[Rfam]
RNA: Bacterial RNase P class A
RNA sequence: GAAAGCAGGCGAGGUGGUUGCGGUCGAUCUCUUUGAGUGUCGGCUGAGGAAAGUCCGGGCUCCCUGAUGGCCAGGCUUGCUGGGUAACGCCCAGUGCGGGUGACCGUGAGGAGAGUGCCACAGAAACACACCGCCGAUGGCCCCGUGGGGCUUCCCCCAGGCACAGGCAAGGGUGCAAAGGUGCGGUAAGAGCGCACCAGCAGCAUCGAGAGGUGCUGGCUCGGUAAACCCCGGCUGGGAGCAAGGCCAAGGAACGACGGCUGGCCAUUGGCCCCGUUCCGUCUAAACGCGCCGCUCGAGGCCGUCGGUAACGGCGGUCCCAGAUAGAUAGCCACCCACCCUCUUCGGAGGCGUGAACAGAACCCGGCUUAUGUCCUGCUUUCACCC
Numbered sequence: 001g002a003a004a005g006c007a008g009g010c011g012a013g014g015u016g017g018u019u020g021c022g023g024u025c026g027a028u029c030u031c032u033u034u035g036a037g038u039g040u041c042g043g044c045u046g047a048g049g050a051a052a053g054u055c056c057g058g059g060c061u062c063c064c065u066g067a068u069g070g071c072c073a074g075g076c077u078u079g080c081u082g083g084g085u086a087a088c089g090c091c092c093a094g095u096g097c098g099g100g101u102g103a104c105c106g107u108g109a110g111g112a113g114a115g116u117g118c119c120a121c122a123g124a125a126a127c128a129c130a131c132c133g134c135c136g137a138u139g140g141c142c143c144c145g146u147g148g149g150g151c152u153u154c155c156c157c158c159a160g161g162c163a164c165a166g167g168c169a170a171g172g173g174u175g176c177a178a179a180g181g182u183g184c185g186g187u188a189a190g191a192g193c194g195c196a197c198c199a200g201c202a203g204c205a206u207c208g209a210g211a212g213g214u215g216c217u218g219g220c221u222c223g224g225u226a227a228a229c230c231c232c233g234g235c236u237g238g239g240a241g242c243a244a245g246g247c248c249a250a251g252g253a254a255c256g257a258c259g260g261c262u263g264g265c266c267a268u269u270g271g272c273c274c275c276g277u278u279c280c281g282u283c284u285a286a287a288c289g290c291g292c293c294g295c296u297c298g299a300g301g302c303c304g305u306c307g308g309u310a311a312c313g314g315c316g317g318u319c320c321c322a323g324a325u326a327g328a329u330a331g332c333c334a335c336c337c338a339c340c341c342u343c344u345u346c347g348g349a350g351g352c353g354u355g356a357a358c359a360g361a362a363c364c365c366g367g368c369u370u371a372u373g374u375c376c377u378g379c380u381u382u383c384a385c386c387c
Base pairs, nucleotide, nucleotide: 001383002382003381004380005379006378007377008376009375011372013336014335015334016333017332018331019330021046022045023044024043025042026041027040028039051370052369053368055367056366057365058364059363060241061240062239063238069273070272071271072270074236075235076234078233079232080094081093082092083091084090095109096107097106098105099104110231111230115229116228117225118224119223131172132171133168134167135166138163139162141160180198181197182196183195184194185193200220201218202217203216204215205214206213207212245293246292247291256283257282258281259280260279264278266276300319301318302317303316304315305314306313307312